[Rfam]
RNA sequence: CAGGUUGGUCGGGCAGCCGCGGCGUCCCAUUGGGAUGUCGAGGAAAGUCCGCGCUCCACAGAGCACGAUGUCGGGUAACACCCGGGGCGGGGUAACCUGCCAGAUCGGGCCACAGAAACAUACCGCCCCGCAAGGGGUAAGGGUGAAAUGGCGGUGUAAAAGACCACCGGCGCUGCCGUAAUGCAGCGGCCAGGCAACCCUCAUCGGGAGCAAGGCCAAGCAGGGACGGGAGACUGCUCGUCUCGACACGUUUCCGGGUAGAAAUACCCGGGAGGGUGGAAGUUCCGGGUAGGCUGCAUGAACGGGCUGGCAACAGUCCGUCUAGAGAGAUGGCUGCCCAGGCGGGUGCGUGCGUCCUCUUCGGAGGAGACCCAGUCGCCGGACAGAACGCGGCUUAUAGAUCAGCCUGAGGC
Numbered sequence: 001c002a003g004g005u006u007g008g009u010c011g012g013g014c015a016g017c018c019g020c021g022g023c024g025u026c027c028c029a030u031u032g033g034g035a036u037g038u039c040g041a042g043g044a045a046a047g048u049c050c051g052c053g054c055u056c057c058a059c060a061g062a063g064c065a066c067g068a069u070g071u072c073g074g075g076u077a078a079c080a081c082c083c084g085g086g087g088c089g090g091g092g093u094a095a096c097c098u099g100c101c102a103g104a105u106c107g108g109g110c111c112a113c114a115g116a117a118a119c120a121u122a123c124c125g126c127c128c129c130g131c132a133a134g135g136g137g138u139a140a141g142g143g144u145g146a147a148a149u150g151g152c153g154g155u156g157u158a159a160a161a162g163a164c165c166a167c168c169g170g171c172g173c174u175g176c177c178g179u180a181a182u183g184c185a186g187c188g189g190c191c192a193g194g195c196a197a198c199c200c201u202c203a204u205c206g207g208g209a210g211c212a213a214g215g216c217c218a219a220g221c222a223g224g225g226a227c228g229g230g231a232g233a234c235u236g237c238u239c240g241u242c243u244c245g246a247c248a249c250g251u252u253u254c255c256g257g258g259u260a261g262a263a264a265u266a267c268c269c270g271g272g273a274g275g276g277u278g279g280a281a282g283u284u285c286c287g288g289g290u291a292g293g294c295u296g297c298a299u300g301a302a303c304g305g306g307c308u309g310g311c312a313a314c315a316g317u318c319c320g321u322c323u324a325g326a327g328a329g330a331u332g333g334c335u336g337c338c339c340a341g342g343c344g345g346g347u348g349c350g351u352g353c354g355u356c357c358u359c360u361u362c363g364g365a366g367g368a369g370a371c372c373c374a375g376u377c378g379c380c381g382g383a384c385a386g387a388a389c390g391c392g393g394c395u396u397a398u399a400g401a402u403c404a405g406c407c408u409g410a411g412g413c
Stems, first nucleotide, its partner, number of pairs: 001409010011398001012338007020040009045396003049393005054210004064257001066206005071085005087101001088099004102201002107199002109195003123142002125138005150168002153165003170190001171188006214295004224286002226283002302321008
RNA: Bacterial RNase P class A